[Rfam]
This 74-nucleotide sequence from Daucus carota belongs to the Rfam family "Small nucleolar RNA R12". Pairs were carried over by alignment from the consensus structure, which was predicted with PFOLD. Its family is annotated with nucleolus and RNA processing in the Gene Ontology. The match comes from Rfam's covariance-model search (60 bits). snoR12 is a C/D box small nucleolar RNA, which acts as a methylation guide for 25S ribosomal RNA in plants. snoR12 has been alternatively named snoZ44 in Arabidopsis and snoZ131 in rice. NCBI's taxonomy places the organism under Eukaryota, Streptophytina, Magnoliopsida, campanulids, Daucus carota. The literature on the family includes a 2003 paper in Nucleic Acids Res by Chen et al., "The high diversity of snoRNAs in plants: identification and comparative study of 120 snoRNA genes from Oryza sativa". By type it is a C/D-box small nucleolar RNA.

Nucleotides: 074
Stems, first nucleotide, its partner, number of pairs: 002073004
Number, partner (000 for none) and nucleotide at each position: 001000a002073a003072g004071a005070g006000u007000a008000u009000g010000a011000u012000g013000a014000a015000g016000a017000a018000a019000u020000c021000a022000u023000u024000c025000g026000g027000a028000u029000u030000c031000c032000c033000a034000a035000u036000g037000a038000a039000u040000u041000a042000u043000c044000c045000g046000u047000g048000u049000u050000u051000a052000c053000u054000u055000a056000c057000c058000a059000g060000c061000u062000a063000c064000u065000u066000c067000u068000g069000a070005c071004u072003c073002u074000c